[Rfam]
RNA: DUF3800-IX RNA
Nucleotides: 070
Base pairs, nucleotide, nucleotide: 001066002065003064004063005062006061007060008059010058011057012056017035018034019033020031021030022029023028038052039051040050041049
Number, partner (000 for none) and nucleotide at each position: 001066g002065c003064c004063c005062c006061g007060u008059g009000u010058u011057c012056c013000g014000a015000a016000c017035u018034g019033u020031c021030u022029c023028c024000g025000u026000a027000u028023g029022g030021a031020g032000c033019g034018c035017g036000u037000g038052c039051c040050u041049g042000c043000c044000g045000u046000u047000g048000g049041c050040a051039g052038g053000a054000u055000a056012g057011g058010a059008c060007a061006c062005g063004g064003g065002g066001c067000c068000g069000c070000c